This 600-nucleotide part of an RNA from Aequorivita ciconiae belongs to the Rfam family "Bacterial small subunit ribosomal RNA". A search with the family's covariance model found it, with a score of 1525 bits.
[Rfam]
RNA sequence: UGACGGGGGCCCGCACAAGCGGUGGAGCAUGUGGUUUAAUUCGAUGAUACGCGAGGAACCUUACCAGGGCUUAAAUGUAGUCUGACAGGGGUGGAAACAUCCCCUUCUUCGGACAGAUUACAAGGUGCUGCAUGGUUGUCGUCAGCUCGUGCCGUGAGGUGUCAGGUUAAGUCCUAUAACGAGCGCAACCCCUGUCGUUAGUUGCCAGCAUGUAAAGAUGGGAACUCUAACGAGACUGCCGGUGCAAACCGUGAGGAAGGUGGGGAUGACGUCAAAUCAUCACGGCCCUUACGUCCUGGGCCACACACGUGCUACAAUGGCAGGUACAAUGGGCAGCCACUGCGCAAGCAGGCGCGAAUCCACAAAACCUGUCUCAGUUCGGAUCGGGGUCUGCAACUCGACCCCGUGAAGCUGGAAUCGCUAGUAAUCGGAUAUCAGCCAUGAUCCGGUGAAUACGUUCCCGGGCCUUGUACACACCGCCCGUCAAGCCAUGGAAGCUGGAAGCACCUGAAGUCCGUCACCGCGAGGAGCGGCCUAGGGUGAAGCUGGUAACUGGGGCUAAGUCGUAACAAGGUAGCCGUACCGGAAGGUGCGGCUGGA
Numbered sequence: 001u002g003a004c005g006g007g008g009g010c011c012c013g014c015a016c017a018a019g020c021g022g023u024g025g026a027g028c029a030u031g032u033g034g035u036u037u038a039a040u041u042c043g044a045u046g047a048u049a050c051g052c053g054a055g056g057a058a059c060c061u062u063a064c065c066a067g068g069g070c071u072u073a074a075a076u077g078u079a080g081u082c083u084g085a086c087a088g089g090g091g092u093g094g095a096a097a098c099a100u101c102c103c104c105u106u107c108u109u110c111g112g113a114c115a116g117a118u119u120a121c122a123a124g125g126u127g128c129u130g131c132a133u134g135g136u137u138g139u140c141g142u143c144a145g146c147u148c149g150u151g152c153c154g155u156g157a158g159g160u161g162u163c164a165g166g167u168u169a170a171g172u173c174c175u176a177u178a179a180c181g182a183g184c185g186c187a188a189c190c191c192c193u194g195u196c197g198u199u200a201g202u203u204g205c206c207a208g209c210a211u212g213u214a215a216a217g218a219u220g221g222g223a224a225c226u227c228u229a230a231c232g233a234g235a236c237u238g239c240c241g242g243u244g245c246a247a248a249c250c251g252u253g254a255g256g257a258a259g260g261u262g263g264g265g266a267u268g269a270c271g272u273c274a275a276a277u278c279a280u281c282a283c284g285g286c287c288c289u290u291a292c293g294u295c296c297u298g299g300g301c302c303a304c305a306c307a308c309g310u311g312c313u314a315c316a317a318u319g320g321c322a323g324g325u326a327c328a329a330u331g332g333g334c335a336g337c338c339a340c341u342g343c344g345c346a347a348g349c350a351g352g353c354g355c356g357a358a359u360c361c362a363c364a365a366a367a368c369c370u371g372u373c374u375c376a377g378u379u380c381g382g383a384u385c386g387g388g389g390u391c392u393g394c395a396a397c398u399c400g401a402c403c404c405c406g407u408g409a410a411g412c413u414g415g416a417a418u419c420g421c422u423a424g425u426a427a428u429c430g431g432a433u434a435u436c437a438g439c440c441a442u443g444a445u446c447c448g449g450u451g452a453a454u455a456c457g458u459u460c461c462c463g464g465g466c467c468u469u470g471u472a473c474a475c476a477c478c479g480c481c482c483g484u485c486a487a488g489c490c491a492u493g494g495a496a497g498c499u500g501g502a503a504g505c506a507c508c509u510g511a512a513g514u515c516c517g518u519c520a521c522c523g524c525g526a527g528g529a530g531c532g533g534c535c536u537a538g539g540g541u542g543a544a545g546c547u548g549g550u551a552a553c554u555g556g557g558g559c560u561a562a563g564u565c566g567u568a569a570c571a572a573g574g575u576a577g578c579c580g581u582a583c584c585g586g587a588a589g590g591u592g593c594g595g596c597u598g599g600a
Stems, first nucleotide, its partner, number of pairs: 001474002003471003007468007015458002019421005024315001026313008034304002040055004064299007076122003080118005088103006106113002124288002127286004133282002135277003138273001140271002145184006151160003164175003190265004195233007205222002209220003236256002239253001240251004319373007332361002336355002341350003380411001385406007427450007477573001479570001482566002487560004492555003497550005505542004513535001515533004521528002575598010

Lineage of the source: Bacteria > Pseudomonadati > Bacteroidota > Flavobacteriaceae > Aequorivita. The family has 99 seed sequences and 42,628 matches in Rfam 15.1.